Annotation: Eukaryotic large subunit ribosomal RNA: a 426-nucleotide part of an RNA from Owenia fusiformis. The base pairs follow the family's consensus structure, which is taken from published work. Taxonomically the source falls in Owenia (Eukaryota, Metazoa, Bilateria, Protostomia). The literature on the family includes a 2002 paper in BMC Bioinformatics by Cannone et al., "The comparative RNA web (CRW) site: an online database of comparative sequence and structure information for ribosomal, intron, and other RNAs".
RNA sequence: CGACCUCAGAUCAGACGUGAUUACCCGCUGAAUUUAAGCAUAUCACUAAGCGGAGGAAAAGAAACUAACAAGGAUUCCCUCAGUAACGGCGAGUGAAGCGGGAAGAGCCCAGCACCGAAUCGCCCGGCCUCUGGUCGGCGCGAACUGUGGUGUUUAGGACAGCCUCUGAGGCGGCGUACGGGUGUCCGAGUCCUUCAGAACGGGGCUUUACCCACGGCGGGUGAUAGGCCUCUACCGGCCCCCGUCGCCGUCCCUUUGAGCGUCCUCGGAGUCGGGUUGUUUGUAAAUGCAGCCCAAAGUGGGUGGUAAACUCCAUCUAAGGCUAAAUACGGACACGAGGCCGAUAGCGGACAAGUACCGUGAGGGAAAGUUGAAAAGAACUUUGAAGAGAGAGUUCAAUAGUACGUGAAACCGCUUAGAGGCAAA
Numbered sequence: 001c002g003a004c005c006u007c008a009g010a011u012c013a014g015a016c017g018u019g020a021u022u023a024c025c026c027g028c029u030g031a032a033u034u035u036a037a038g039c040a041u042a043u044c045a046c047u048a049a050g051c052g053g054a055g056g057a058a059a060a061g062a063a064a065c066u067a068a069c070a071a072g073g074a075u076u077c078c079c080u081c082a083g084u085a086a087c088g089g090c091g092a093g094u095g096a097a098g099c100g101g102g103a104a105g106a107g108c109c110c111a112g113c114a115c116c117g118a119a120u121c122g123c124c125c126g127g128c129c130u131c132u133g134g135u136c137g138g139c140g141c142g143a144a145c146u147g148u149g150g151u152g153u154u155u156a157g158g159a160c161a162g163c164c165u166c167u168g169a170g171g172c173g174g175c176g177u178a179c180g181g182g183u184g185u186c187c188g189a190g191u192c193c194u195u196c197a198g199a200a201c202g203g204g205g206c207u208u209u210a211c212c213c214a215c216g217g218c219g220g221g222u223g224a225u226a227g228g229c230c231u232c233u234a235c236c237g238g239c240c241c242c243c244g245u246c247g248c249c250g251u252c253c254c255u256u257u258g259a260g261c262g263u264c265c266u267c268g269g270a271g272u273c274g275g276g277u278u279g280u281u282u283g284u285a286a287a288u289g290c291a292g293c294c295c296a297a298a299g300u301g302g303g304u305g306g307u308a309a310a311c312u313c314c315a316u317c318u319a320a321g322g323c324u325a326a327a328u329a330c331g332g333a334c335a336c337g338a339g340g341c342c343g344a345u346a347g348c349g350g351a352c353a354a355g356u357a358c359c360g361u362g363a364g365g366g367a368a369a370g371u372u373g374a375a376a377a378g379a380a381c382u383u384u385g386a387a388g389a390g391a392g393a394g395u396u397c398a399a400u401a402g403u404a405c406g407u408g409a410a411a412c413c414g415c416u417u418a419g420a421g422g423c424a425a426a
Stems, first nucleotide, its partner, number of pairs: 024055001025053005035042002065072002076103004086094002106324004113152005119146001120143004124138005157265002162263002166260002170252007180243003184239003190206001192205004213217001220230002274295007301318005358365002381392004